[Rfam]
RNA sequence: GUCGGUUAUGGUGACAUGGUACCCAAAACAUAUGUGGGCAUGUUCGUUGGCGCAUUAUGUGCUCUCGCAGGCGUAUUAGCUAUCGCCCUGCCGGUGCCCGUGAUCGUUAGCAAU
Numbered sequence: 001g002u003c004g005g006u007u008a009u010g011g012u013g014a015c016a017u018g019g020u021a022c023c024c025a026a027a028a029c030a031u032a033u034g035u036g037g038g039c040a041u042g043u044u045c046g047u048u049g050g051c052g053c054a055u056u057a058u059g060u061g062c063u064c065u066c067g068c069a070g071g072c073g074u075a076u077u078a079g080c081u082a083u084c085g086c087c088c089u090g091c092c093g094g095u096g097c098c099c100g101u102g103a104u105c106g107u108u109a110g111c112a113a114u
Base pairs, nucleotide, nucleotide: 001114002113004111008107009106010105011104014101015100018097021095022094037077038076040074049063050062051061
RNA: Potassium channel RNA editing signal